[Rfam]
RNA sequence: CCGGCUGCCAUUGCGGGGCCGGCUGACCAGAGGGCGUCCGCUCUCUCGGACGCACCUUGUAACAUCGUUGCUCCAAGGAGGACUUUGAUAUGAGGA
Number, nucleotide and partner (000 for none) at each position: 001c022002c021003g020004g019005c018006u017007g000008c016009c015010a000011u000012u000013g000014c000015g009016g008017g006018g005019c004020c003021g002022g001023c000024u000025g000026a000027c000028c000029a000030g000031a000032g055033g000034g053035c052036g051037u050038c049039c048040g047041c000042u000043c000044u000045c000046u000047c040048g039049g038050a037051c036052g035053c034054a000055c032056c094057u093058u092059g091060u090061a089062a000063c087064a086065u000066c000067g083068u082069u081070g000071c080072u079073c078074c000075a000076a000077g000078g073079a072080g071081g069082a068083c067084u000085u000086u064087g063088a000089u061090a060091u059092g058093a057094g056095g000096a000
This 96-nucleotide RNA sequence from Allosphingosinicella humi belongs to the Rfam family "Repression of heat shock gene expression (ROSE) element". Pairs were carried over by alignment from the consensus structure, which is taken from published work. Gene Ontology terms of the family: regulation of translation and response to temperature stimulus. Rfam 15.1 lists 381 matches to the family in 262 species. It scores 59 bits against the family's covariance model. This family represents a 5' UTR cis-regulatory element found in heat shock mRNAs and is known as the ROSE (repression of heat shock gene expression) element. The ROSE element is a negative regulator of heat shock gene expression. The secondary structure is thought to be regulated by temperature. A reference for the family is Nocker et al. (2001), "A mRNA-based thermosensor controls expression of rhizobial heat shock genes", Nucleic Acids Res. It is annotated as an RNA thermoregulator.